Rfam assigns this 228-nucleotide part of an RNA from Fannyhessea vaginae to the family "Bacterial large subunit ribosomal RNA". The organism belongs to Fannyhessea vaginae, within Bacteria. The family's consensus secondary structure is taken from published work.
Nucleotides: 228
Stems, first nucleotide, its partner, number of pairs: 005085013020040004026035003044051002054066004088226002091223001095216006104192011115180001117149004124141006153177003157174005194204003
Number, partner (000 for none) and nucleotide at each position: 001000g002000a003000g004000u005085u006084a007083c008082g009081g010080u011079g012078u013077g014076u015075g016074g017073c018000a019000a020040g021039g022038u023037u024000a025000a026035g027034c028033u029000a030000a031000a032000a033028a034027g035026c036000g037023a038022g039021c040020c041000g042000a043000a044051g045050c046000g047000a048000c049000a050045g051044c052000g053000a054066g055065u056064c057063u058000u059000a060000a061000u062000u063057g064056g065055g066054c067000g068000u069000u070000u071000u072000a073017g074016u075015c076014g077013c078012a079011c080010a081009u082008c083007g084006u085005a086000g087000a088226c089225g090000c091223g092000a093000a094000g095216c096215c097214a098213a099212g100211u101000g102000a103000u104192c105191u106190a107189u108188c109187c110186a111185u112184g113183a114182g115180c116000a117149g118148g119147c120146u121000g122000a123000a124141g125140c126139g127138g128137g129136g130000g131000u132000a133000a134000g135000a136129c137128c138127c139126c140125g141124u142000g143000g144000a145000g146120g147119g148118c149117c150000g151000a152000a153177c154176c155175c156000a157174c158173c159172u160171a161170g162000g163000u164000u165000g166000a167000a168000a169000a170161c171160u172159g173158g174157g175155g176154g177153g178000a179000u180115g181000a182114c183113u184112u185111g186110u187109g188108g189107a190106u191105a192104g193000g194204g195203g196202u197000g198000a199000a200000a201000g202196g203195c204194c205000a206000a207000u208000c209000a210000a211100a212099c213098u214097u215096g216095g217000a218000g219000a220000u221000a222000u223091c224000u225089c226088g227000u228000u